[Rfam]
RNA sequence: GAUUGCCGAGGUGGUAGAUUUCGUCCCGACCACGCGCCGAUGGUAUGACAAGGGGAAACCCUGAGAGAUGCAGGAGAGGGGGACGCCUGCCGGCAAUC
Numbered sequence: 001g002a003u004u005g006c007c008g009a010g011g012u013g014g015u016a017g018a019u020u021u022c023g024u025c026c027c028g029a030c031c032a033c034g035c036g037c038c039g040a041u042g043g044u045a046u047g048a049c050a051a052g053g054g055g056a057a058a059c060c061c062u063g064a065g066a067g068a069u070g071c072a073g074g075a076g077a078g079g080g081g082g083a084c085g086c087c088u089g090c091c092g093g094c095a096a097u098c
Stems, first nucleotide, its partner, number of pairs: 001098008011033005023084005035065001036044003070090005
Dot-bracket structure: ((((((((..(((((.......[[[[[.))))).((((...)))....................)....(((((.....]]]]].)))))))))))))
Notes
A member of the RNA family "skipping-rope RNA", 98 nucleotides long. It is one of the family's seed sequences.